[Rfam]
RNA: TPP riboswitch aptamer (THI element)
Organism: Cryptosporangium arvum
RNA sequence: GUCACUGUACGCGGGAGCUCGCGCCGGAAGCGGGCUGAGAGGGCGGCUGUCCGAGAAGGACGGUGCCGCCGACCGCUCGAACCUGACCGGGUAAUGCCGGCGUAGGGAGCUCUUCAUGAGCAAUG
Number, nucleotide and partner (000 for none) at each position: 001g000002u000003c000004a000005c000006u000007g112008u000009a000010c109011g076012c075013g074014g073015g000016a000017g035018c034019u033020c032021g031022c000023g000024c000025c000026g000027g000028a000029a000030g000031c021032g020033g019034g018035c017036u000037g000038a000039g000040a000041g000042g070043g069044c068045g067046g066047c000048u000049g000050u000051c000052c000053g000054a000055g000056a000057a000058g000059g000060a000061c000062g000063g000064u000065g000066c046067c045068g044069c043070c042071g000072a000073c014074c013075g012076c011077u000078c000079g000080a000081a000082c106083c105084u104085g103086a000087c100088c099089g098090g097091g000092u000093a000094a000095u000096g000097c090098c089099g088100g087101c000102g000103u085104a084105g083106g082107g000108a000109g010110c000111u000112c007113u000114u000115c000116a000117u000118g000119a000120g000121c000122a000123a000124u000125g000